[Rfam]
RNA: Guanidine-I riboswitch aptamer
Organism: Roseibium aggregatum
RNA sequence: GUGCAGCGCGCCUAGGGAUCCGGUCGCAAGACGACGCAGGACCGAGAGGUGCAAGCCGGUUGAGAGGCAUAUGCCGACAUAGACCGGUGACACGGCGGGACAAAAACCCGGGAGAC
Numbered sequence: 001g002u003g004c005a006g007c008g009c010g011c012c013u014a015g016g017g018a019u020c021c022g023g024u025c026g027c028a029a030g031a032c033g034a035c036g037c038a039g040g041a042c043c044g045a046g047a048g049g050u051g052c053a054a055g056c057c058g059g060u061u062g063a064g065a066g067g068c069a070u071a072u073g074c075c076g077a078c079a080u081a082g083a084c085c086g087g088u089g090a091c092a093c094g095g096c097g098g099g100a101c102a103a104a105a106a107c108c109c110g111g112g113a114g115a116c
Stems, first nucleotide, its partner, number of pairs: 008052005015043002020040002022037001023035004055088007091111001093114001097109003